[Rfam]
RNA sequence: CAAGCUCCAUCUAUUAAUGGAUAAGAUUUUGGUCUUAAUGUAGUCGAGUUUUAAAAUUGAUUUAAAGGAGCAAUAACCAAUUUCUUGUUCUAUAUGAGUGGGUUGGUAUUGCUCCUUU
Numbered sequence: 001c002a003a004g005c006u007c008c009a010u011c012u013a014u015u016a017a018u019g020g021a022u023a024a025g026a027u028u029u030u031g032g033u034c035u036u037a038a039u040g041u042a043g044u045c046g047a048g049u050u051u052u053a054a055a056a057u058u059g060a061u062u063u064a065a066a067g068g069a070g071c072a073a074u075a076a077c078c079a080a081u082u083u084c085u086u087g088u089u090c091u092a093u094a095u096g097a098g099u100g101g102g103u104u105g106g107u108a109u110u111g112c113u114c115c116u117u118u
Base pairs, nucleotide, nucleotide: 006021007020008019009018010017064118065117066116067115068114069113070112071111072110073109074108075107078102082098083097084096086094
A member of the RNA family "Plastid-psbA-1 3UTR RNA", 118 nucleotides long. On this family, see Richter et al., Plant Commun 2023: "Retrograde signaling in plants: A critical review focusing on the GUN pathway and beyond". Clan: Plastid-psbA 3UTR RNA clan. Plastid psbA-1 is a non-coding RNA (ncRNA) present in plastids. It was identified in inverted repeat sequences in the 3 prime untranslate region (3UTR) of photosystem II quinone-binding protein (psbA).